[Rfam]
RNA sequence: UGAGUAGGUCAAAUGAUCGCAUGCGCAACGCGUAUGAGGAAAGUCCGGGCUCCGCAGGGCAGGGUGCCAGAUAACGUCUGGUGGAGGCGACUCUAAGGAUAGUGCAACAGAGAUAUACCGCCUGAUUUUUCAGGUAAGGGUGGAAAGGCGAGGUAAGAGCUCACCAGCGGCUAGGCGACUAGUCGGCUAUGUAAACCCCAUCCGGAGCAAAACCAAGAUAAGGGACUUGGGGGUGGCUGCCCGUCACCUUCCCGCUAUGGUAGGUUGCUUGAGCUUGUCGGUGACGACAAGCCUAGAUAGAUGAUCAUUCAACGACAGAACCCGGCUUAUAGACCUACUCGUUAC
Numbered sequence: 001u002g003a004g005u006a007g008g009u010c011a012a013a014u015g016a017u018c019g020c021a022u023g024c025g026c027a028a029c030g031c032g033u034a035u036g037a038g039g040a041a042a043g044u045c046c047g048g049g050c051u052c053c054g055c056a057g058g059g060c061a062g063g064g065u066g067c068c069a070g071a072u073a074a075c076g077u078c079u080g081g082u083g084g085a086g087g088c089g090a091c092u093c094u095a096a097g098g099a100u101a102g103u104g105c106a107a108c109a110g111a112g113a114u115a116u117a118c119c120g121c122c123u124g125a126u127u128u129u130u131c132a133g134g135u136a137a138g139g140g141u142g143g144a145a146a147g148g149c150g151a152g153g154u155a156a157g158a159g160c161u162c163a164c165c166a167g168c169g170g171c172u173a174g175g176c177g178a179c180u181a182g183u184c185g186g187c188u189a190u191g192u193a194a195a196c197c198c199c200a201u202c203c204g205g206a207g208c209a210a211a212a213c214c215a216a217g218a219u220a221a222g223g224g225a226c227u228u229g230g231g232g233g234u235g236g237c238u239g240c241c242c243g244u245c246a247c248c249u250u251c252c253c254g255c256u257a258u259g260g261u262a263g264g265u266u267g268c269u270u271g272a273g274c275u276u277g278u279c280g281g282u283g284a285c286g287a288c289a290a291g292c293c294u295a296g297a298u299a300g301a302u303g304a305u306c307a308u309u310c311a312a313c314g315a316c317a318g319a320a321c322c323c324g325g326c327u328u329a330u331a332g333a334c335c336u337a338c339u340c341g342u343u344a345c
Stems, first nucleotide, its partner, number of pairs: 001341010011330001012309007020036007041328003045325005050207004057242004062203005067081005082096001083094004097198002102196002104192003118139002120135006147165002150162003167187001168185007211266004222253001223251003233247005273292008